Ribosomal protein L10 leader: a 146-nucleotide sequence from Microcoleus sp. FACHB-1515. By type it is a cis-regulatory leader. A search with the family's covariance model found it, with a score of 56 bits. From the family's description: This family is a putative r-protein leader autoregulatory structure found in B. subtilis and other low-GC Gram-positive bacteria. It is located in the 5' untranslated regions of mRNAs encoding ribosomal proteins L10 and L12 (rplJ-rplL). A Rho-independent transcription terminator structure that is probably involved in regulation is included at the 3' end. Taxonomically the source falls in Microcoleus (Bacteria, Cyanophyceae, Oscillatoriales, Microcoleaceae).
[Rfam]
RNA sequence: UACAACUGAAUCGCAAAGCCGCAGACAGCAGGGGCGAAAGCUUAAACAGCCUGCCGAGGUGAUGCACUUUCCGCCCUCAUCUGAGGUGCGAUCGAAUGUGUGUGAAACCCCGGUCUGUGAAUCGAUCGGGGUUUUGCUUUGCGGUU
Numbered sequence: 001u002a003c004a005a006c007u008g009a010a011u012c013g014c015a016a017a018g019c020c021g022c023a024g025a026c027a028g029c030a031g032g033g034g035c036g037a038a039a040g041c042u043u044a045a046a047c048a049g050c051c052u053g054c055c056g057a058g059g060u061g062a063u064g065c066a067c068u069u070u071c072c073g074c075c076c077u078c079a080u081c082u083g084a085g086g087u088g089c090g091a092u093c094g095a096a097u098g099u100g101u102g103u104g105a106a107a108c109c110c111c112g113g114u115c116u117g118u119g120a121a122u123c124g125a126u127c128g129g130g131g132u133u134u135u136g137c138u139u140u141g142c143g144g145u146u
Stems, first nucleotide, its partner, number of pairs: 028054005034041002108131008117122001